[Rfam]
The record is a 245-nucleotide RNA sequence, which matches "Streptomyces sRNA 4677" in Rfam. From the family's description: Located in the intergenic region between anti-sigma factor SCO4677 gene and a putative regulatory protein gene SCO4676. scr4677 expression requires the SCO4677 activity and scr4677 sRNA itself seem to affect the levels of the SCO4676-associated transcripts. It is annotated as a small RNA. It scores 83 bits against the family's covariance model. Pairs were carried over by alignment from the consensus structure. For this family Rfam cites "Complex intra-operonic dynamics mediated by a small RNA in Streptomyces coelicolor" (Hindra et al., PLoS One, 2014).
RNA sequence: CGGCCCGGCGCGACGCAAAAGCAUAAAGCCCGGGGAAAUCCCCUUCCCCAACCCCACCGACCUCCCCACCAUCCCGCCACUCACACGGGUGACAUAUGCCAACUCGGUUGGUAUUGAGGCGGGUUGGGCGGCAUAUGCUCGCCGCGACCGGUGCACAUCUGCACGACCGCACACAUGCUUCGGCCCCCGGCCGGGACUGGCAUCCCGAACGAGGGCCUGACCAACAAGGAAGCAACACCUUCCCG
Dot-bracket structure: ......(..(.......................................................)..)........(((((....)))))...............(.(((...........................))).)......................................(((((.((...((((......))))...)).)))))..........(((((......)))))..